Background
Plastid-psbN 5UTR RNA: a 61-nucleotide RNA sequence from Gossypium stocksii. The organism belongs to Gossypium, within Eukaryota. Rfam describes the family as follows. Plastid psbN is a non-coding RNA (ncRNA) recognised in plastids. It was reported as a conserved 11 stem-loop in the prime untranslated region (5UTR) of psbN genes. It has been reported that the motif is retained in a subset of mature transcripts in barley, which can suggests a possible role in transcript alternative 5 prime processing.
RNA sequence: UGUAACACCCAUCAAAGGAGUCAUUCCCCAUUCAGGGACUACCUUACUAUAUUCCGAAUUC
Numbered sequence: 001u002g003u004a005a006c007a008c009c010c011a012u013c014a015a016a017g018g019a020g021u022c023a024u025u026c027c028c029c030a031u032u033c034a035g036g037g038a039c040u041a042c043c044u045u046a047c048u049a050u051a052u053u054c055c056g057a058a059u060u061c
Stems, first nucleotide, its partner, number of pairs: 017045002020042002024038004